[Rfam]
RNA: Selenocysteine transfer RNA
RNA sequence: GGGAGAGGUUGAGACGCUGGUGCACUCCACGGUCUUCAAAACCGAUUGGGACGUCUUGUUAGACGUUUGGUGGGUUCGAUUCCCAUCCUUUCUC
Numbered sequence: 001g002g003g004a005g006a007g008g009u010u011g012a013g014a015c016g017c018u019g020g021u022g023c024a025c026u027c028c029a030c031g032g033u034c035u036u037c038a039a040a041a042c043c044g045a046u047u048g049g050g051a052c053g054u055c056u057u058g059u060u061a062g063a064c065g066u067u068u069g070g071u072g073g074g075u076u077c078g079a080u081u082c083c084c085a086u087c088c089u090u091u092c093u094c
Stems, first nucleotide, its partner, number of pairs: 001094008011027003016023002028048001030044004050067005071085004